Bacterial large signal recognition particle RNA: a 265-nucleotide RNA sequence from Carboxydocella thermautotrophica. The source organism's lineage runs through Bacteria, Bacillati, Eubacteriales, Carboxydocella and Carboxydocella thermautotrophica. By type it is a non-coding RNA gene. About the family: The signal recognition particle (SRP) is a universally conserved ribonucleoprotein involved in the co-translational targeting of proteins to membranes. The family's consensus secondary structure is taken from published work.

Nucleotides: 265
Base pairs, nucleotide, nucleotide: 001265002264003263004262005261006260009058010057011056012030013029014028015027017025019023035055036054037053038052039051063258064257065256066255067254068253069252072249073248074247075246076245078242079241080240081239082238084236085235086234087233091232092231095226096225097224098223099222100221103219104218105216106215107214114210115209116208117207118206119205120204121203122199123198124197125196126195127194128190129189131188133186134185135184138179139178140177141176147172148171149170150169155164156163157162
Number, partner (000 for none) and nucleotide at each position: 001265u002264c003263g004262u005261g006260c007000u008000a009058g010057a011056u012030g013029g014028g015027g016000a017025g018000g019023u020000a021000g022000c023019g024000g025017u026000g027015c028014c029013c030012u031000g032000u033000a034000a035055c036054c037053c038052a039051c040000a041000a042000u043000c044000c045000g046000c047000u048000a049000u050000a051039g052038u053037g054036g055035g056011g057010u058009c059000g060000a061000u062000g063258c064257c065256c066255g067254g068253c069252a070000g071000c072249g073248g074247g075246u076245c077000u078242g079241u080240u081239u082238c083000a084236u085235g086234g087233g088000g089000u090000c091232c092231g093000g094000u095226c096225u097224c098223c099222g100221u101000a102000a103219g104218u105216g106215g107214u108000g109000u110000g111000g112000a113000c114210g115209g116208u117207u118206g119205g120204g121203u122199c123198c124197u125196g126195c127194g128190c129189a130000a131188c132000a133186c134185a135184a136000g137000c138179u139178c140177u141176c142000g143000a144000a145000c146000c147172g148171u149170g150169u151000c152000a153000g154000g155164u156163c157162c158000u159000g160000a161000c162157g163156g164155a165000a166000g167000c168000a169150g170149c171148a172147c173000u174000a175000a176141g177140g178139g179138a180000u181000g182000u183000c184135u185134u186133g187000g188131g189129u190128g191000u192000g193000c194127c195126g196125c197124g198123g199122g200000a201000g202000u203121g204120c205119c206118u207117g208116g209115c210114c211000u212000g213000a214107g215106c216105u217000a218104a219103c220000u221100g222099c223098g224097g225096g226095g227000a228000u229000a230000a231092c232091g233087c234086c235085u236084g237000g238082g239081a240080g241079g242078c243000a244000g245076g246075a247074u248073u249072c250000a251000a252069u253068g254067c255066c256065g257064g258063g259000u260006g261005c262004a263003c264002g265001g